Record summary: Rfam assigns this 86-nucleotide sequence from Anaerobacillus isosaccharinicus to the family "c-di-GMP-I riboswitch aptamer". A search with the family's covariance model found it, with a score of 70 bits.
RNA sequence: GGUACGAACAGGCAAAACCAUUGAAAAGUGGUGACGCAAAACUAGAGGGGCUACUAUGAACAUCAUUAUGCCAGCCAGUUUCCGAA
Numbered sequence: 001g002g003u004a005c006g007a008a009c010a011g012g013c014a015a016a017a018c019c020a021u022u023g024a025a026a027a028g029u030g031g032u033g034a035c036g037c038a039a040a041a042c043u044a045g046a047g048g049g050g051c052u053a054c055u056a057u058g059a060a061c062a063u064c065a066u067u068a069u070g071c072c073a074g075c076c077a078g079u080u081u082c083c084g085a086a
Base pairs, nucleotide, nucleotide: 012037013036017032018031019030020029021028022027040080041079042078043077047076048075049072050071051070056066057065058064059063